[Rfam]
RNA sequence: AUACUUACCUUAAGACGUCAGUGGAGAUCAAGAAGUCUGACUGACCUGGUAUGCUUUUUUAAAGGAUGCUUCACUGUCAAGAGGUUUAAGUACAUUUUCGGAUGUGCUUGUCACCUCUUCAUGACGCUUUACCUGUGGAGUUCCUUUGCAAUUUUUCACAUAUUUGCGAAAGGUGUACCUGCUGACGUUUCAUUCUCUCGUUCGUUGUUAGAAGCUGGGAGGCCUUGUGCCUCUUGGCUCUGACAAUGGGCCCUUUUUUCUUCUGCCUGGAGAAGCAGUGUGCUGAUUACAACUCAGCAUUGGGAGAACUGGGGUUUCUGGGCUAUUAAAGGUACAUUUCCAGAAUUGAACGAUUCCUGGCAUUUGCUUGCUUCUAUUGCCAUUGGUCUUUCGAGGCUGACGCGAUACGAUGCUGCUUUGCUUGUUGAAGGGGUUUCAUGGGAUUUGUCCUAGUUCUGGGAAUCUUGGUAGAAACGGGUGGGUCUUAUAAUUUUUGAUUUCUUUC
Numbered sequence: 001a002u003a004c005u006u007a008c009c010u011u012a013a014g015a016c017g018u019c020a021g022u023g024g025a026g027a028u029c030a031a032g033a034a035g036u037c038u039g040a041c042u043g044a045c046c047u048g049g050u051a052u053g054c055u056u057u058u059u060u061a062a063a064g065g066a067u068g069c070u071u072c073a074c075u076g077u078c079a080a081g082a083g084g085u086u087u088a089a090g091u092a093c094a095u096u097u098u099c100g101g102a103u104g105u106g107c108u109u110g111u112c113a114c115c116u117c118u119u120c121a122u123g124a125c126g127c128u129u130u131a132c133c134u135g136u137g138g139a140g141u142u143c144c145u146u147u148g149c150a151a152u153u154u155u156u157c158a159c160a161u162a163u164u165u166g167c168g169a170a171a172g173g174u175g176u177a178c179c180u181g182c183u184g185a186c187g188u189u190u191c192a193u194u195c196u197c198u199c200g201u202u203c204g205u206u207g208u209u210a211g212a213a214g215c216u217g218g219g220a221g222g223c224c225u226u227g228u229g230c231c232u233c234u235u236g237g238c239u240c241u242g243a244c245a246a247u248g249g250g251c252c253c254u255u256u257u258u259u260c261u262u263c264u265g266c267c268u269g270g271a272g273a274a275g276c277a278g279u280g281u282g283c284u285g286a287u288u289a290c291a292a293c294u295c296a297g298c299a300u301u302g303g304g305a306g307a308a309c310u311g312g313g314g315u316u317u318c319u320g321g322g323c324u325a326u327u328a329a330a331g332g333u334a335c336a337u338u339u340c341c342a343g344a345a346u347u348g349a350a351c352g353a354u355u356c357c358u359g360g361c362a363u364u365u366g367c368u369u370g371c372u373u374c375u376a377u378u379g380c381c382a383u384u385g386g387u388c389u390u391u392c393g394a395g396g397c398u399g400a401c402g403c404g405a406u407a408c409g410a411u412g413c414u415g416c417u418u419u420g421c422u423u424g425u426u427g428a429a430g431g432g433g434u435u436u437c438a439u440g441g442g443a444u445u446u447g448u449c450c451u452a453g454u455u456c457u458g459g460g461a462a463u464c465u466u467g468g469u470a471g472a473a474a475c476g477g478g479u480g481g482g483u484c485u486u487a488u489a490a491u492u493u494u495u496g497a498u499u500u501c502u503u504u505c
Stems, first nucleotide, its partner, number of pairs: 010490003013485003017045005022039004046181001048179007056172005076163002186476006194307006200251010219233005260275005280300007

Shown here is a 505-nucleotide sequence from Eremothecium cymbalariae, a member of the family "Yeast U1 spliceosomal RNA". U1 is a small nuclear RNA (snRNA) component of the spliceosome (involved in pre-mRNA splicing). Its 5' end forms complementary base pairs with the 5' splice junction, thus defining the 5' donor site of an intron. There are significant differences in sequence and secondary structure between metazoan and yeast U1 snRNAs, the latter being much longer (568 nucleotides as compared to 164 nucleotides in human). Nevertheless, secondary structure predictions suggest that all U1 snRNAs share a 'common core' consisting of helices I, II, the proximal region of III, and IV. This family represents the larger yeast sequences. The family's consensus secondary structure is taken from published work. The organism belongs to Eremothecium cymbalariae, within Eukaryota.